[Rfam]
RNA sequence: GGAGAUUUGAGGAAAGCUGCUCCUAGUACGAGAGGACCGGAGUGGACGAACCUCUGGUGUUCGGGUUGUCACGCCAGUGGCAUUGCCCGGUAGCUAUGUUCGGACAGGAUAACCGCUGAAAGCAUCUAAGCGGGAAGCCCCUUCCAAGAUGAGAUCUCCCCGGGCCCUCGAGGCCCCUGAAGAGCCGUUCAAGACCAGGACGUUGAUAGGCCGGGUGUGUAAGCGCUGCGAGGCGUUGAGCUAACCGGUACUAAUUGCUCGUGCG
Number, nucleotide and partner (000 for none) at each position: 001g159002g158003a157004g156005a155006u154007u153008u152009g000010a000011g145012g144013a143014a142015a000016g000017c045018u044019g043020c042021u041022c040023c039024u000025a000026g000027u000028a000029c000030g000031a000032g000033a000034g000035g000036a000037c000038c000039g023040g022041a021042g020043u019044g018045g017046a000047c102048g101049a100050a099051c098052c000053u000054c000055u096056g095057g094058u000059g000060u000061u000062c089063g088064g087065g086066u085067u082068g081069u080070c079071a078072c077073g000074c000075c000076a000077g072078u071079g070080g069081c068082a067083u000084u000085g066086c065087c064088c063089g062090g000091u000092a000093g000094c057095u056096a055097u000098g051099u050100u049101c048102g047103g000104a000105c000106a000107g139108g138109a000110u000111a000112a000113c133114c132115g131116c130117u129118g000119a000120a000121a000122g000123c000124a000125u000126c000127u000128a000129a117130g116131c115132g114133g113134g000135a000136a000137g000138c108139c107140c000141c000142u014143u013144c012145c011146a000147a000148g000149a000150u000151g000152a008153g007154a006155u005156c004157u003158c002159c001160c000161c000162g177163g176164g175165c000166c000167c000168u000169c000170g000171a000172g000173g000174c000175c164176c163177c162178u000179g262180a000181a000182g260183a259184g258185c257186c202187g201188u200189u199190c198191a000192a000193g000194a000195c000196c000197a000198g190199g189200a188201c187202g186203u000204u000205g000206a000207u253208a252209g251210g249211c248212c247213g246214g245215g000216u000217g241218u000219g000220u000221a000222a000223g236224c235225g234226c233227u232228g000229c000230g000231a000232g227233g226234c225235g224236u223237u000238g000239a000240g000241c217242u000243a000244a000245c214246c213247g212248g211249u210250a000251c209252u208253a207254a000255u000256u000257g185258c184259u183260c182261g000262u179263g000264c000265g000
The family of this 265-nucleotide part of an RNA from Marinobacter gudaonensis is "Bacterial large subunit ribosomal RNA". It scores 2870 bits against the family's covariance model. The source organism's lineage runs through Bacteria, Pseudomonadati, Pseudomonadota, Gammaproteobacteria and Marinobacter.